[Rfam]
Nucleotides: 112
Stems, first nucleotide, its partner, number of pairs: 003074004008065008017055001026051008090112001092111004097106001
Number, partner (000 for none) and nucleotide at each position: 001000u002000u003074a004073c005072u006071c007000g008065g009064u010063u011062u012061c013060u014059c015058u016000a017055a018000u019000a020000a021000c022000g023000c024000a025000c026051a027050a028049g029048u030047c031046u032045u033044u034000c035000g036000c037000c038000u039000u040000u041000a042000c043000u044033a045032a046031a047030g048029a049028c050027u051026u052000c053000c054000g055017u056000g057000g058015a059014g060013a061012g062011g063010a064009a065008c066000g067000c068000c069000a070000u071006g072005a073004g074003u075000g076000a077000a078000a079000u080000u081000a082000u083000u084000u085000u086000u087000g088000g089000u090112g091000g092111g093110c094109u095108u096000u097106g098000c099000g100000g101000u102000u103000u104000g105000g106097c107000u108095a109094a110093g111092c112090c

U5 spliceosomal RNA: a 112-nucleotide RNA from Etheostoma spectabile.
The source organism's lineage runs through Eukaryota, Deuterostomia, Chordata, Craniata and Oligocephalus.
The match comes from Rfam's covariance-model search (58 bits).